[Rfam]
The family of this 389-nucleotide RNA sequence from Phenylobacterium soli is "Bacterial RNase P class A".
RNA sequence: CCAGACGGCCGGGCGAUCGCGGGCGCAAGCUCGAGGAAAGUCCGGGCUCCACGACGACAUGGCGGCGGGUAACGCCCGCCGGGGGCGACCCCAGGGAUAGCGCCACAGAAAGCAAACCGCCCUCCGAAGUCUCGGCGGAGGAGGGUAAGGGUGAAAGGGUGCGGUAAGAGCGCACCGCGUGCCUGGUGACAGGGACGGCACGGCAAGCCCCGCCAGGAGCAAGACCGAAUAGGGAUCCCGCGUCCCCAGCAAUGGGGGCAAGGCUGUCGCCGGCCCAGGGAUCCGGGUAGGUCGCGAGAACCGGCCCGCGAGGGUCGGUCCAGAGGAAUGAUCGCCGCGCCGAGGCAACUCGGUUGGCACAGAACCCGGCUUACAGGCCGUCUGGUCCG
Numbered sequence: 001c002c003a004g005a006c007g008g009c010c011g012g013g014c015g016a017u018c019g020c021g022g023g024c025g026c027a028a029g030c031u032c033g034a035g036g037a038a039a040g041u042c043c044g045g046g047c048u049c050c051a052c053g054a055c056g057a058c059a060u061g062g063c064g065g066c067g068g069g070u071a072a073c074g075c076c077c078g079c080c081g082g083g084g085g086c087g088a089c090c091c092c093a094g095g096g097a098u099a100g101c102g103c104c105a106c107a108g109a110a111a112g113c114a115a116a117c118c119g120c121c122c123u124c125c126g127a128a129g130u131c132u133c134g135g136c137g138g139a140g141g142a143g144g145g146u147a148a149g150g151g152u153g154a155a156a157g158g159g160u161g162c163g164g165u166a167a168g169a170g171c172g173c174a175c176c177g178c179g180u181g182c183c184u185g186g187u188g189a190c191a192g193g194g195a196c197g198g199c200a201c202g203g204c205a206a207g208c209c210c211c212g213c214c215a216g217g218a219g220c221a222a223g224a225c226c227g228a229a230u231a232g233g234g235a236u237c238c239c240g241c242g243u244c245c246c247c248a249g250c251a252a253u254g255g256g257g258g259c260a261a262g263g264c265u266g267u268c269g270c271c272g273g274c275c276c277a278g279g280g281a282u283c284c285g286g287g288u289a290g291g292u293c294g295c296g297a298g299a300a301c302c303g304g305c306c307c308g309c310g311a312g313g314g315u316c317g318g319u320c321c322a323g324a325g326g327a328a329u330g331a332u333c334g335c336c337g338c339g340c341c342g343a344g345g346c347a348a349c350u351c352g353g354u355u356g357g358c359a360c361a362g363a364a365c366c367c368g369g370c371u372u373a374c375a376g377g378c379c380g381u382c383u384g385g386u387c388c389g
Base pairs, nucleotide, nucleotide: 001385002384003383004382005381006380007379008378009377010376011374012336013335014334015333016332017331018330020033021032022031023030024029038372039371040370042369043368044367045366046365047219048218049217050216060215061214062213063212064211065079066078067077068076069075080094081092082091083090084089095210096209100208101207102204103203104202117150118149119146120145121144122143123142124141125140158176159175160174161173162172163171177199178197179196180195182193183192184191185190223293224292225291226290233284234283235282236281237280238279262275263274264273265272300319301318302317303316304315305314306313307312
Rfam classes the family as a ribozyme. From the family's description: Ribonuclease P (RNase P) is a ubiquitous endoribonuclease, found in archaea, bacteria and eukarya as well as chloroplasts and mitochondria.